[Rfam]
RNA sequence: UACAAUAGAAUCGGCUCCUCAAGGGUGGUCCGGCUCAUCCCCGGAAAGAAAGGGGGUGAGGCUGAUGACAGUAUUUGAAAGUCUAUCGCUCAUGAUAGCUUUUGGUGCAUUAAUCGCAUUGCUGUCACAAGACAAAAAGAAAUAGACCUUCCUUGAGUCCUGACGAGCUUCAGGGAUUGGUCUAUUUCAAUAACCAUUGAGCCGGCCGCUCAUUUGAGAGGCGACUAUUGUAUCGACCGUGGGUGUGACAGCACCUGCG
Numbered sequence: 001u002a003c004a005a006u007a008g009a010a011u012c013g014g015c016u017c018c019u020c021a022a023g024g025g026u027g028g029u030c031c032g033g034c035u036c037a038u039c040c041c042c043g044g045a046a047a048g049a050a051a052g053g054g055g056g057u058g059a060g061g062c063u064g065a066u067g068a069c070a071g072u073a074u075u076u077g078a079a080a081g082u083c084u085a086u087c088g089c090u091c092a093u094g095a096u097a098g099c100u101u102u103u104g105g106u107g108c109a110u111u112a113a114u115c116g117c118a119u120u121g122c123u124g125u126c127a128c129a130a131g132a133c134a135a136a137a138a139g140a141a142a143u144a145g146a147c148c149u150u151c152c153u154u155g156a157g158u159c160c161u162g163a164c165g166a167g168c169u170u171c172a173g174g175g176a177u178u179g180g181u182c183u184a185u186u187u188c189a190a191u192a193a194c195c196a197u198u199g200a201g202c203c204g205g206c207c208g209c210u211c212a213u214u215u216g217a218g219a220g221g222c223g224a225c226u227a228u229u230g231u232a233u234c235g236a237c238c239g240u241g242g243g244u245g246u247g248a249c250a251g252c253a254c255c256u257g258c259g
Stems, first nucleotide, its partner, number of pairs: 001232005007226002011223001012204006018157008028147003035059003039056004067126007105117003169189001205222003238259009

Source information:
Rfam assigns this 259-nucleotide RNA from Evansella caseinilytica to the family "BsrG". Gene Ontology terms of the family: toxin activity and autolysis. Rfam's curators write: bsrE, bsrG and bsrH pair through intermolecular interactions with antisense sRNAs. Lineage of the source: Bacteria > Bacillati > Bacilli > Caryophanales > Evansella. A search with the family's covariance model found it, with a score of 144 bits. The base pairs follow the family's consensus structure, which was predicted with WAR. The family has 6 seed sequences and 614 matches in Rfam 15.1.